Rfam assigns this 94-nucleotide sequence from Branchiostoma floridae to the family "mir-2060 microRNA precursor family". Pairs were carried over by alignment from the consensus structure, which was predicted with RNAalifold. The match comes from Rfam's covariance-model search (93 bits).
RNA sequence: GUUACCCUGUGUGUGGAUGGUGUUCAUCACCAGAGACAGGUGUGUUUACCUGUGUGUGGAUGGUGUUCAGCACCAGAGACAGAUAUGUUUACCA
Numbered sequence: 001g002u003u004a005c006c007c008u009g010u011g012u013g014u015g016g017a018u019g020g021u022g023u024u025c026a027u028c029a030c031c032a033g034a035g036a037c038a039g040g041u042g043u044g045u046u047u048a049c050c051u052g053u054g055u056g057u058g059g060a061u062g063g064u065g066u067u068c069a070g071c072a073c074c075a076g077a078g079a080c081a082g083a084u085a086u087g088u089u090u091a092c093c094a
Stems, first nucleotide, its partner, number of pairs: 007082004018075007026067001028065005034055001036053007
Lineage of the source: Eukaryota > Eumetazoa > Leptocardii > Branchiostomatidae > Branchiostoma. Its family is annotated with RISC complex and miRNA-mediated post-transcriptional gene silencing in the Gene Ontology.